[Rfam]
RNA: serC leader
RNA sequence: UUUCAGGACACCUUUCCCUAACGAAAGGCGCGUAUCUGAAAGGGUAGCAAAA
Numbered sequence: 001u002u003u004c005a006g007g008a009c010a011c012c013u014u015u016c017c018c019u020a021a022c023g024a025a026a027g028g029c030g031c032g033u034a035u036c037u038g039a040a041a042g043g044g045u046a047g048c049a050a051a052a
Base pairs, nucleotide, nucleotide: 011028012027013026014025015024016023033046034045035044036043037042